[Rfam]
RNA sequence: AUUUGCAUCCGGAGGCCGCGUACGGCGUUCGGAGCAUCGGACACACACUGUGCCUGGGAAGAUCCGGGCACUUCAGGGCGUU
Numbered sequence: 001a002u003u004u005g006c007a008u009c010c011g012g013a014g015g016c017c018g019c020g021u022a023c024g025g026c027g028u029u030c031g032g033a034g035c036a037u038c039g040g041a042c043a044c045a046c047a048c049u050g051u052g053c054c055u056g057g058g059a060a061g062a063u064c065c066g067g068g069c070a071c072u073u074c075a076g077g078g079c080g081u082u
Stems, first nucleotide, its partner, number of pairs: 004036003008033006015026003050071006056064001